RNA sequence: UAUUCAUCAUGAGUGACGGAGGGACUGGCCCAUUGAAGUCACGGCAACCAUUCUUAAUGAAACGGUGCCAAUUCCAGCGAGUAAAAUCUCGAAAGAUGAUGU
Numbered sequence: 001u002a003u004u005c006a007u008c009a010u011g012a013g014u015g016a017c018g019g020a021g022g023g024a025c026u027g028g029c030c031c032a033u034u035g036a037a038g039u040c041a042c043g044g045c046a047a048c049c050a051u052u053c054u055u056a057a058u059g060a061a062a063c064g065g066u067g068c069c070a071a072u073u074c075c076a077g078c079g080a081g082u083a084a085a086a087u088c089u090c091g092a093a094a095g096a097u098g099a100u101g102u
Stems, first nucleotide, its partner, number of pairs: 004099005013042005021031003025077004043069004048065002051061003073094001078091004
SAM riboswitch aptamer (S box leader): a 102-nucleotide RNA from Dialister sp. CAG:357. The source organism's lineage runs through Bacteria, Bacillati, Bacillota, Veillonellales and Dialister.